RNA sequence: UAAGAAAUACCCAACAAGAUGAACACAAUAUUUUCAGACAAAUUUGUCUGAAAAUAUUGUGUUCAUCUUGUUGGGUAUUUCUUA
Numbered sequence: 001u002a003a004g005a006a007a008u009a010c011c012c013a014a015c016a017a018g019a020u021g022a023a024c025a026c027a028a029u030a031u032u033u034u035c036a037g038a039c040a041a042a043u044u045u046g047u048c049u050g051a052a053a054a055u056a057u058u059g060u061g062u063u064c065a066u067c068u069u070g071u072u073g074g075g076u077a078u079u080u081c082u083u084a
Base pairs, nucleotide, nucleotide: 002083003082004081005080006079008077009076010075011074012073013072014071015070016069017068018067019066020065021064022063024061025060026059027058028057031056033054034053037048038047
Dot-bracket structure: .(((((.(((((((((((((((.(((((..(.((..((........))....)).)))))).))))))))))))))).))))).

The record is an 84-nucleotide RNA from Taxus chinensis, which matches "mir-2763 microRNA precursor family" in Rfam. Rfam 15.1 lists 59 matches to the family in 43 species. The base pairs follow the family's consensus structure, which was predicted with RNAalifold.